[Rfam]
RNA sequence: UAAACAGCCGGGUAAACAUCAGUUGCAAACACCGGAAGUUUCAGUCUGAUUA
Numbered sequence: 001u002a003a004a005c006a007g008c009c010g011g012g013u014a015a016a017c018a019u020c021a022g023u024u025g026c027a028a029a030c031a032c033c034g035g036a037a038g039u040u041u042c043a044g045u046c047u048g049a050u051u052a
Stems, first nucleotide, its partner, number of pairs: 002040002008035002011033001012030002018050005
RNA: Exoribonuclease-resistant RNA (xrRNA) plant-infecting virus (class 3)
Organism: Polerovirus BCHV